The record is a 77-nucleotide sequence from Perca flavescens, which matches "mir-1 microRNA precursor family" in Rfam. This family represents the microRNA (miRNA) mir-1 family. miRNAs are transcribed as ~70nt precursors (modelled here) and subsequently processed by the Dicer enzyme to give a ~22nt product. A reference for the family is Lee and Ambros (2001), "An extensive class of small RNAs in Caenorhabditis elegans", Science. It scores 49 bits against the family's covariance model.
[Rfam]
RNA sequence: UACAGUAUAUCCUAAUUCCUUUCCUCCCAUACACUACAUUGUAGUGUAUGGGAGGAAAGGAAUUAGGAUAUAUUGUA
Number, nucleotide and partner (000 for none) at each position: 001u000002a000003c000004a000005g000006u000007a071008u070009a069010u068011c067012c066013u065014a064015a063016u062017u061018c060019c059020u058021u057022u056023c055024c054025u053026c000027c051028c050029a049030u048031a047032c000033a000034c000035u000036a000037c000038a000039u000040u000041g000042u000043a000044g000045u000046g000047u031048a030049u029050g028051g027052g000053a025054g024055g023056a022057a021058a020059g019060g018061a017062a016063u015064u014065a013066g012067g011068a010069u009070a008071u007072a000073u000074u000075g000076u000077a000